RNA sequence: CGUCUCCUCCACCCUCCUCCUUUGGUGUGGAUUAAGCCCGGGUCUUUUGAUCCGGGCAUUUUUUU
Numbered sequence: 001c002g003u004c005u006c007c008u009c010c011a012c013c014c015u016c017c018u019c020c021u022u023u024g025g026u027g028u029g030g031a032u033u034a035a036g037c038c039c040g041g042g043u044c045u046u047u048u049g050a051u052c053c054g055g056g057c058a059u060u061u062u063u064u065u
Stems, first nucleotide, its partner, number of pairs: 008031005013025002036057007
Betaproteobacteria toxic small RNA: a 65-nucleotide sequence from Zoogloea dura. Rfam's curators write: Overexpression in amino aid rich medium attenuates growth, suggesting role in repressing amino acid intake and metabolism. For this family Rfam cites "Identification of small RNAs abundant in Burkholderia cenocepacia biofilms reveal putative regulators with a potential role in carbon and iron metabolism" (Sass et al., Sci Rep, 2017). The base pairs follow the family's consensus structure, which was predicted with WAR.